[Rfam]
RNA sequence: CUAUUACCACGUUAUGUGCGUUGUAUAUAUUGGUAAUAUGGUCCAAUGUUUCUACGCUUAACCGUUAAUUAAGCACUACAGAAUAAAAAAGAAGAAGU
Numbered sequence: 001c002u003a004u005u006a007c008c009a010c011g012u013u014a015u016g017u018g019c020g021u022u023g024u025a026u027a028u029a030u031u032g033g034u035a036a037u038a039u040g041g042u043c044c045a046a047u048g049u050u051u052c053u054a055c056g057c058u059u060a061a062c063c064g065u066u067a068a069u070u071a072a073g074c075a076c077u078a079c080a081g082a083a084u085a086a087a088a089a090a091g092a093a094g095a096a097g098u
Stems, first nucleotide, its partner, number of pairs: 018084001021081005029047005056074006
Shown here is a 98-nucleotide RNA from Firmicutes bacterium CAG:449, a member of the family "Purine riboswitch aptamer". The match comes from Rfam's covariance-model search (55 bits). NCBI's taxonomy places the organism under Bacteria, Bacillati, Bacillota.